RNA sequence: CAGCAAGCCUGCAGCGUGCUGGGGUCUGCAGUGACCCUGCUGCAUUCCUACGGUGCUUGCCAGGACACUUUUGAAAUGGUUUGAGGCCUUGCCCUGCCCUCUCCAGAGCAAGGUUAUAGAAAUUCCAGACAAUU
Numbered sequence: 001c002a003g004c005a006a007g008c009c010u011g012c013a014g015c016g017u018g019c020u021g022g023g024g025u026c027u028g029c030a031g032u033g034a035c036c037c038u039g040c041u042g043c044a045u046u047c048c049u050a051c052g053g054u055g056c057u058u059g060c061c062a063g064g065a066c067a068c069u070u071u072u073g074a075a076a077u078g079g080u081u082u083g084a085g086g087c088c089u090u091g092c093c094c095u096g097c098c099c100u101c102u103c104c105a106g107a108g109c110a111a112g113g114u115u116a117u118a119g120a121a122a123u124u125c126c127a128g129a130c131a132a133u134u
Stems, first nucleotide, its partner, number of pairs: 003060006017044003022037005072127002075124002087113006094106003
RNA: Small nucleolar RNA SNORA9
Organism: Urocitellus parryii